[Rfam]
RNA sequence: AAAGGUUGUGAAGCGCCAGGACUGCGGAAGAAGAACCGCAGUUGACGAGGUGGAGGGGAAUCGAGGUUUCGGCGGAUCCCUCCCGGCUUUUGCACCGGAGCCGAGGGACCGGAACACAAAAGGACAGGGUGACCUGUCUCACAAAAGUUCCGGUACGGUGCGCC
Numbered sequence: 001a002a003a004g005g006u007u008g009u010g011a012a013g014c015g016c017c018a019g020g021a022c023u024g025c026g027g028a029a030g031a032a033g034a035a036c037c038g039c040a041g042u043u044g045a046c047g048a049g050g051u052g053g054a055g056g057g058g059a060a061u062c063g064a065g066g067u068u069u070c071g072g073c074g075g076a077u078c079c080c081u082c083c084c085g086g087c088u089u090u091u092g093c094a095c096c097g098g099a100g101c102c103g104a105g106g107g108a109c110c111g112g113a114a115c116a117c118a119a120a121a122g123g124a125c126a127g128g129g130u131g132a133c134c135u136g137u138c139u140c141a142c143a144a145a146a147g148u149u150c151c152g153g154u155a156c157g158g159u160g161c162g163c164c
Base pairs, nucleotide, nucleotide: 020043021042022041023040024039025038026037027036052083053082054081055080056079061072062071063070064069084103085102086101087100088099089098108154109153110152111151112150113149114148122139123138124137125136126135127134128133

Shown here is a 164-nucleotide RNA from Kroppenstedtia eburnea, a member of the family "glmS glucosamine-6-phosphate activated ribozyme aptamer". The family's RNA type in Rfam is riboswitch. Taxonomically the source falls in Kroppenstedtia (Bacteria, Bacillati, Bacilli, Thermoactinomycetaceae).